Rfam assigns this 102-nucleotide RNA from Ammoniphilus oxalaticus to the family "Purine riboswitch aptamer". NCBI's taxonomy places the organism under Bacteria, Bacillati, Bacilli, Caryophanales, Ammoniphilus.
RNA sequence: UAAACUUAAUACUAAGCAUUUCGUAUAAUCUCAAGGAUAGGGCUUGAAAGUUUCUACCGAGCUGCCGUAAAUGGCUCGACUACGGGAUGGUUUAAUUGGGUA
Numbered sequence: 001u002a003a004a005c006u007u008a009a010u011a012c013u014a015a016g017c018a019u020u021u022c023g024u025a026u027a028a029u030c031u032c033a034a035g036g037a038u039a040g041g042g043c044u045u046g047a048a049a050g051u052u053u054c055u056a057c058c059g060a061g062c063u064g065c066c067g068u069a070a071a072u073g074g075c076u077c078g079a080c081u082a083c084g085g086g087a088u089g090g091u092u093u094a095a096u097u098g099g100g101u102a
Stems, first nucleotide, its partner, number of pairs: 018088008029049001031047005058078007